RNA sequence: ACGCCGAAAGGAGGUGAUCGGGUACAUGUAUGAAUCCCGGACACGCGAGGUGGCUGCGGGCUAGCGGCCCGUCACCACAUCCAGUGCGGUGCCGGACCAGCGCGUGAACCGUGCGUGCAGCCGGCCCCAAUCCCAAGCAGUCACCCGACCCGCGAGCUCGCCGGUACGUCCGGCCGGCUUCUCCGCCGUGAGGCGGGGAGACCCGAGCUCGCGGGUCGUCUGCG
Number, nucleotide and partner (000 for none) at each position: 001a000002c000003g000004c000005c000006g000007a000008a000009a000010g000011g000012a000013g000014g057015u056016g055017a000018u053019c000020g000021g000022g000023u000024a000025c000026a000027u000028g000029u000030a000031u000032g000033a000034a000035u000036c000037c000038c000039g000040g000041a000042c000043a000044c000045g000046c000047g000048a000049g000050g000051u000052g000053g018054c000055u016056g015057c014058g000059g126060g125061c124062u123063a000064g121065c120066g000067g118068c117069c000070c115071g000072u000073c113074a112075c111076c000077a000078c000079a000080u000081c000082c000083a000084g000085u000086g000087c000088g000089g000090u000091g000092c000093c000094g000095g000096a000097c000098c000099a000100g000101c000102g000103c000104g000105u000106g000107a000108a000109c000110c000111g075112u074113g073114c000115g070116u000117g068118c067119a000120g065121c064122c000123g062124g061125c060126c059127c000128c000129a000130a000131u000132c000133c000134c000135a000136a000137g000138c000139a000140g000141u000142c000143a000144c000145c000146c218147g217148a216149c215150c214151c213152g212153c211154g210155a209156g208157c207158u206159c000160g178161c177162c176163g175164g174165u173166a000167c000168g000169u000170c000171c000172g000173g165174c164175c163176g162177g161178c160179u000180u000181c000182u000183c000184c000185g000186c000187c000188g000189u000190g000191a000192g000193g000194c000195g000196g000197g000198g000199a000200g000201a000202c000203c000204c000205g000206a158207g157208c156209u155210c154211g153212c152213g151214g150215g149216u148217c147218g146219u000220c000221u000222g000223c000224g000
RNA: Actinobacteria sRNA Ms_IGR-5
Organism: Streptomyces albiflavescens